[Rfam]
RNA sequence: GCUCGGUGAUGAUGUCUCUGGGAUUGAGCAAACUGUAGUUGGUCCUGCGUUUGCAUGGAUGAUGUAAUCCUGUUUCAAGACGGGGCUGAGAGCAGU
Numbered sequence: 001g002c003u004c005g006g007u008g009a010u011g012a013u014g015u016c017u018c019u020g021g022g023a024u025u026g027a028g029c030a031a032a033c034u035g036u037a038g039u040u041g042g043u044c045c046u047g048c049g050u051u052u053g054c055a056u057g058g059a060u061g062a063u064g065u066a067a068u069c070c071u072g073u074u075u076c077a078a079g080a081c082g083g084g085g086c087u088g089a090g091a092g093c094a095g096u
Base pairs, nucleotide, nucleotide: 001093002092003091004090

The family of this 96-nucleotide RNA sequence from Megalops atlanticus is "Small nucleolar RNA SNORD21". It is annotated as a C/D-box small nucleolar RNA. Gene Ontology terms of the family: nucleolus and RNA processing. The match comes from Rfam's covariance-model search (64 bits). On this family, see Qu et al., Nucleic Acids Res 1994: "U21, a novel small nucleolar RNA with a 13 nt. complementarity to 28S rRNA, is encoded in an intron of ribosomal protein L5 gene in chicken and mammals". Lineage of the source: Eukaryota > Opisthokonta > Actinopteri > Megalopidae > Megalops.